[Rfam]
RNA sequence: CUUCUAUCCAGAGCGGCUGAGAGACGUGGCUCGGUGACGCCGCAGCAACCCGCCCCGGCAGGGUGCUUCCGCCACGACCGAUGGAGA
Numbered sequence: 001c002u003u004c005u006a007u008c009c010a011g012a013g014c015g016g017c018u019g020a021g022a023g024a025c026g027u028g029g030c031u032c033g034g035u036g037a038c039g040c041c042g043c044a045g046c047a048a049c050c051c052g053c054c055c056c057g058g059c060a061g062g063g064u065g066c067u068u069c070c071g072c073c074a075c076g077a078c079c080g081a082u083g084g085a086g087a
Base pairs, nucleotide, nucleotide: 002086003085004084005083006082007081008080013043014042015041016040017039021032022031023030027074028073029072044067045066046065047064049063050062052059053058071079
This 87-nucleotide RNA from Actinomyces sp. 2119 belongs to the Rfam family "SAM riboswitch aptamer (S box leader)". The organism belongs to Actinomyces, within Bacteria. The match comes from Rfam's covariance-model search (53 bits).